[Rfam]
RNA sequence: AACGAUAAAGGCAAACCUACUGAAAGGUAGGGACGCAAAGCUAUAGGGCCUUAAAAGGCAGCCAGUUACCGAAA
Numbered sequence: 001a002a003c004g005a006u007a008a009a010g011g012c013a014a015a016c017c018u019a020c021u022g023a024a025a026g027g028u029a030g031g032g033a034c035g036c037a038a039a040g041c042u043a044u045a046g047g048g049c050c051u052u053a054a055a056a057g058g059c060a061g062c063c064a065g066u067u068a069c070c071g072a073a074a
Stems, first nucleotide, its partner, number of pairs: 003071002011036002016031006034061001039067004046063002048059003
Rfam assigns this 74-nucleotide RNA sequence from Soehngenia longivitae to the family "c-di-GMP-I-GGC riboswitch aptamer". The match comes from Rfam's covariance-model search (66 bits).